[Rfam]
RNA sequence: CCAUGUGCAGCUGAUGACAGCACAGCUGCUGAGACUCUAUGAUUGCUCAGUCUCAAAGUAAAUGACGCACUGUGG
Numbered sequence: 001c002c003a004u005g006u007g008c009a010g011c012u013g014a015u016g017a018c019a020g021c022a023c024a025g026c027u028g029c030u031g032a033g034a035c036u037c038u039a040u041g042a043u044u045g046c047u048c049a050g051u052c053u054c055a056a057a058g059u060a061a062a063u064g065a066c067g068c069a070c071u072g073u074g075g
Stems, first nucleotide, its partner, number of pairs: 005070004010021004029050005